[Rfam]
RNA: Small nucleolar RNA SNORA3/SNORA45 family
Organism: Dicentrarchus labrax
RNA sequence: AGCGAGGCUAGAGUCACGCCUCGACACUGACCUGUUGCCUUGGUGUGCUAGAGUGCUCGCAGAGGAAAACGUCUUUGCUUAUUCAUUGGCUGUAGUCUGUUGUGACCCAGUCAAUCACCAACUCAGACACACUA
Numbered sequence: 001a002g003c004g005a006g007g008c009u010a011g012a013g014u015c016a017c018g019c020c021u022c023g024a025c026a027c028u029g030a031c032c033u034g035u036u037g038c039c040u041u042g043g044u045g046u047g048c049u050a051g052a053g054u055g056c057u058c059g060c061a062g063a064g065g066a067a068a069a070c071g072u073c074u075u076u077g078c079u080u081a082u083u084c085a086u087u088g089g090c091u092g093u094a095g096u097c098u099g100u101u102g103u104g105a106c107c108c109a110g111u112c113a114a115u116c117a118c119c120a121a122c123u124c125a126g127a128c129a130c131a132c133u134a
Base pairs, nucleotide, nucleotide: 002060003059004058005057006056007054008053009052012049013048015047016046017045018044019043020042023039025037026036073126074125077122079120085115086114087113088112089111091109092108095106096105097104